RNA sequence: CACUAAAUCUUGUCGAAACUCUUAAAAGAGUGCGGGGGAUAUUUUUGGGGUGAAUCUUAAUUAUAAGUAGGGUACCUCUAACCCGAACCCGUCAACUAACCUCGUAGACAUUAUGGAGGGAUUUA
Numbered sequence: 001c002a003c004u005a006a007a008u009c010u011u012g013u014c015g016a017a018a019c020u021c022u023u024a025a026a027a028g029a030g031u032g033c034g035g036g037g038g039a040u041a042u043u044u045u046u047g048g049g050g051u052g053a054a055u056c057u058u059a060a061u062u063a064u065a066a067g068u069a070g071g072g073u074a075c076c077u078c079u080a081a082c083c084c085g086a087a088c089c090c091g092u093c094a095a096c097u098a099a100c101c102u103c104g105u106a107g108a109c110a111u112u113a114u115g116g117a118g119g120g121a122u123u124u125a
Base pairs, nucleotide, nucleotide: 011110012109013108014107018031019030020029032105033104034103035102036101037100040047041046048090049089050088056067057066058065059064070084071083072082073081
The record is a 125-nucleotide RNA sequence from Clostridium niameyense, which matches "c-di-AMP riboswitch aptamer (ydaO/yuaA leader)" in Rfam.
Gene Ontology terms of the family: regulation of gene expression and cyclic-di-AMP binding.
The base pairs follow the family's consensus structure.
This family represents a conserved RNA structure found upstream of the ydaO and yuaA genes in Bacillus subtilis and related genes in other bacteria.